[Rfam]
Nucleotides: 088
Stems, first nucleotide, its partner, number of pairs: 012038002017033004022029002041082004046078003049073003056067004
Number, partner (000 for none) and nucleotide at each position: 001000a002000u003000u004000u005000g006000a007000u008000a009000a010000a011000g012038g013037c014000a015000a016000a017033c018032u019031a020030g021000u022029a023028c024000g025000a026000a027000a028023g029022u030020c031019u032018a033017g034000g035000a036000c037013g038012c039000a040000a041082a042081g043080c044079c045000a046078u047077a048076g049073g050072u051071c052000u053000a054000a055000u056067g057066u058065u059064u060000u061000u062000u063000a064059a065058a066057a067056c068000u069000a070000u071051g072050a073049u074000a075000g076048c077047u078046a079044g080043g081042u082041u083000a084000c085000c086000g087000a088000a